The record is a 198-nucleotide RNA from Perca fluviatilis, which matches "Small nucleolar RNA SNORA74" in Rfam. U19 belongs to the H/ACA class of snoRNAs. snoRNAs bind a number of proteins (including dyskerin, Gar1p and Nop10p in the case of the H/ACA class) to form snoRNP complexes. This class are thought to guide the sites of modification of uridines to pseudouridines by forming direct base pairing interactions with substrate RNAs. Targets may include ribosomal and spliceosomal RNAs but the exact functions of many snoRNAs, including U19, are not confirmed. Co-precipitation of U19 snoRNA with RNase MRP RNA suggests that U19 may be involved in pre-rRNA processing. By type it is an H/ACA-box small nucleolar RNA. Rfam 15.1 lists 1,348 matches to the family in 628 species. The literature on the family includes a 1996 paper in Mol Cell Biol by Kiss et al., "Characterization of the intron-encoded U19 RNA, a new mammalian small nucleolar RNA that is not associated with fibrillarin". The source organism's lineage runs through Eukaryota, Craniata, Acanthomorphata, Percomorphaceae and Perca. The base pairs follow the family's consensus structure, which was predicted with PFOLD. Rfam links the family to the GO terms RNA processing and nucleolus. It scores 87 bits against the family's covariance model.
[Rfam]
RNA sequence: GCCAGCGCUCAGUCAGCUGUCCAGGCGCCGUGUCUGGCUCAGUGUUACAGCGCUGGUAGAGAAAGUCUCUGUAGUGGCUCUCAGCUCUGCAGGCUCUGUUUUAGAGUGUGCUGCUGUUGAGCUGCUGCAGAGCCUGGCCCAACGAGAGUGGCCUGUCCUGAUCCCCAGCAGGGCCGGCCUAGUGACGGGCCGCACAAU
Dot-bracket structure: (((((((((..((..((((..(((((.....)))))...))))...))))))))))).........((((((((.(((((.((((...(((..((((.....)))))))...))))..))))).))))))))..((((((.........(((..((((((........))))))..))).......))))))......